[Rfam]
RNA sequence: UUAGCCACGUAAUGUCCCCAUUAAAUAAUAAUAACGAAAAAAAAGGCGCAGAAAACUGCGCCUUUUUU
Numbered sequence: 001u002u003a004g005c006c007a008c009g010u011a012a013u014g015u016c017c018c019c020a021u022u023a024a025a026u027a028a029u030a031a032u033a034a035c036g037a038a039a040a041a042a043a044a045g046g047c048g049c050a051g052a053a054a055a056c057u058g059c060g061c062c063u064u065u066u067u068u
Stems, first nucleotide, its partner, number of pairs: 002011001041066011
Salmonella enterica sRNA STnc40: a 68-nucleotide RNA from Legionella worsleiensis.
The base pairs follow the family's consensus structure, which was predicted with LocARNA.